[Rfam]
RNA sequence: GGGGGCGACCUGGCUUCGACGGGGAGAGAGAAUUCGAGAGCGCGUGCCGAGGUCCCCGACAACCUCGCUAAUCCUCGGGAAAAAAAUCAAACGCCAACGAUAACUCGUAUGCGUUGGCCGCCUAAAGAGAUUUAGGUAGCCCGUUGGCGUCCGUGGGGCCUACAACGCGGACGCCGACGCCAUCUACAGCAGGCUAGCCGAUCACUCUUGUUCAGGGGCGGCCGGCGAAACUCUCUGAACUGGUCCAAUCCGGAUCCUGUCAGUCGGAGCUGGUGAGGAUGAGAAAGCCGUAGCAUAGACUGACUACGCACGUAGUGGUCUCGUAGGACCUAUUCUCGGACGCGGGUUCGAUUCCCGCCGCCUCCACCA
Dot-bracket structure: (((((((............((((((.((....((...(.((.(((((((((([[[[.[....))))).......].]]]].....................................(.(((((((....))))))).)..((((((.((((....[[[[[.......)))).))))))...........]]]]]...............((((((...[[[[[[........))))))]]]]]]..[[[[..[[.[[(((((((]].....]]..]]]].................)))))))...))))).....)).)...))...)).))))))...(((((.......))))))))))))....
The record is a 369-nucleotide RNA sequence, which matches "transfer-messenger RNA" in Rfam. It is one of the family's seed sequences. Rfam classes the family as a non-coding RNA gene. The base pairs follow the family's consensus structure, which is taken from published work. Rfam links the family to the GO term RNA catabolic process.